The record is a 59-nucleotide RNA from Corynebacterium alimapuense, which matches "L31-Corynebacteriaceae ribosomal protein leader" in Rfam. By type it is a cis-regulatory leader. Lineage of the source: Bacteria > Bacillati > Mycobacteriales > Corynebacteriaceae > Corynebacterium. The family's consensus secondary structure is taken from published work. A reference for the family is Eckert and Weinberg (2020), "Discovery of 20 novel ribosomal leader candidates in bacteria and archaea", BMC Microbiol. The family is grouped with related families in Rfam's "Ribosomal Protein L31 Leader clan".
RNA sequence: ACUCAGGCACGAUCCGCGUUUUCCUAUGUGGAACCGACCUGAUGUUCAAUCCUGAGGGA
Numbered sequence: 001a002c003u004c005a006g007g008c009a010c011g012a013u014c015c016g017c018g019u020u021u022u023c024c025u026a027u028g029u030g031g032a033a034c035c036g037a038c039c040u041g042a043u044g045u046u047c048a049a050u051c052c053u054g055a056g057g058g059a
Base pairs, nucleotide, nucleotide: 001045002044004041005040006039007038013032014031015030016029017028018027019026